Source information
The record is a 112-nucleotide RNA from Oryza sativa, which matches "MIR397 microRNA precursor family" in Rfam. Rfam's curators put it in the seed alignment. Rfam links the family to the GO terms miRNA-mediated post-transcriptional gene silencing and RISC complex. NCBI's taxonomy places the organism under Eukaryota, Embryophyta, Magnoliopsida, Liliopsida, Oryza sativa.

[Rfam]
Nucleotides: 112
Base pairs, nucleotide, nucleotide: 006109007108008107009106010105011104013102014101015100016099017098018097019096020095022093023092024091025090026089027088028087030085031084032083
Number, partner (000 for none) and nucleotide at each position: 001000a002000u003000c004000a005000a006109a007108u008107g009106c010105a011104u012000c013102a014101u015100u016099g017098a018097g019096u020095g021000c022093a023092g024091c025090g026089u027088u028087g029000a030085u031084g032083a033000a034000c035000a036000a037000c038000g039000g040000u041000a042000a043000c044000c045000g046000g047000u048000c049000c050000a051000u052000g053000u054000u055000g056000a057000u058000g059000c060000g061000c062000a063000u064000u065000u066000g067000g068000c069000c070000g071000g072000u073000g074000a075000u076000c077000u078000g079000a080000u081000c082000a083032u084031c085030a086000u087028c088027a089026g090025c091024g092023c093022u094000u095020c096019a097018c098017u099016c100015a101014a102013u103000c104011a105010u106009g107008c108007g109006u110000u111000u112000g